[Rfam]
RNA sequence: GUCUCCACCAAUUCGACACAACGUCCUGCAGAGAUGUUGUGCGACCUGCAGUGUCAAUCGGUGGAGAC
Number, nucleotide and partner (000 for none) at each position: 001g068002u067003c066004u065005c064006c063007a062008c000009c060010a000011a058012u057013u056014c000015g000016a000017c000018a000019c000020a038021a037022c036023g035024u034025c033026c000027u000028g000029c000030a000031g000032a000033g025034a024035u023036g022037u021038u020039g000040u000041g000042c000043g055044a054045c053046c000047u000048g000049c000050a000051g000052u000053g045054u044055c043056a013057a012058u011059c000060g009061g000062u007063g006064g005065a004066g003067a002068c001
Shown here is a 68-nucleotide RNA sequence from Trichoderma cornu-damae, a member of the family "bZIP non canonical Hac1/Xbp1 intron". The match comes from Rfam's covariance-model search (48 bits). bZIP intron RNA is a non-canonical intron that was first reported in HAC1 gene in yeast and XBP1 gene in Metazoa. Rfam 15.1 lists 1,325 matches to the family in 1,320 species. The family's consensus secondary structure was predicted with RNAfold. The organism belongs to Trichoderma, within Eukaryota. It is annotated as a small RNA. A reference for the family is Hooks and Griffiths-Jones (2011), "Conserved RNA structures in the non-canonical Hac1/Xbp1 intron", RNA Biol.